[Rfam]
RNA sequence: UUGACAGAAGAGAGUGAGCACCCAGAGGCACUUGGUAUAAAGUGUAUGCUAAGGCUUUUGCGUGCUCACUACUCUCUCUGUCAG
Numbered sequence: 001u002u003g004a005c006a007g008a009a010g011a012g013a014g015u016g017a018g019c020a021c022c023c024a025g026a027g028g029c030a031c032u033u034g035g036u037a038u039a040a041a042g043u044g045u046a047u048g049c050u051a052a053g054g055c056u057u058u059u060g061c062g063u064g065c066u067c068a069c070u071a072c073u074c075u076c077u078c079u080g081u082c083a084g
Stems, first nucleotide, its partner, number of pairs: 001084008010074003013070009023060003
A member of the RNA family "mir-156 microRNA precursor family" from Cucurbita maxima, 84 nucleotides long.
Rfam describes the family as follows. This family represents the plant microRNA (miRNA) precursor mir-156.
The organism belongs to Cucurbita, within Eukaryota.
The literature on the family includes a 2001 paper in Cell by Ambros, "microRNAs: tiny regulators with great potential".
The match comes from Rfam's covariance-model search (67 bits).